Rfam assigns this 103-nucleotide RNA from Kalmanozyma brasiliensis to the family "tRNA".
RNA sequence: GGUUUCUUGGCGCAGUUGGUUAGCGCGUCUCCUUAACAAUUCUGGUCUCUCAGAUCGUUAGGGCUUACGGAGGAGGUCGCCGGUUCGAACCCGGCAGAAAUCA
Numbered sequence: 001g002g003u004u005u006c007u008u009g010g011c012g013c014a015g016u017u018g019g020u021u022a023g024c025g026c027g028u029c030u031c032c033u034u035a036a037c038a039a040u041u042c043u044g045g046u047c048u049c050u051c052a053g054a055u056c057g058u059u060a061g062g063g064c065u066u067a068c069g070g071a072g073g074a075g076g077u078c079g080c081c082g083g084u085u086c087g088a089a090c091c092c093g094g095c096a097g098a099a100a101u102c103a
Base pairs, nucleotide, nucleotide: 001102002101003100004099005098006097007096010026011025012024013023028073029072030071031070032069079095080094081093082092083091